Shown here is a 50-nucleotide RNA from Fimbriiglobus ruber, a member of the family "Guanidine-II riboswitch aptamer (mini-ykkC)". It scores 33 bits against the family's covariance model.
RNA sequence: CCGACGGGACGACCGCGUCGGUGGCCGUGACCGGGACCGGGACGACCCGG
Number, nucleotide and partner (000 for none) at each position: 001c021002c020003g019004a018005c017006g016007g014008g013009a000010c000011g000012a000013c008014c007015g000016c006017g005018u004019c003020g002021g001022u000023g000024g000025c000026c000027g000028u000029g000030a000031c000032c000033g000034g000035g000036a000037c050038c049039g048040g047041g046042a000043c000044g000045a000046c041047c040048c039049g038050g037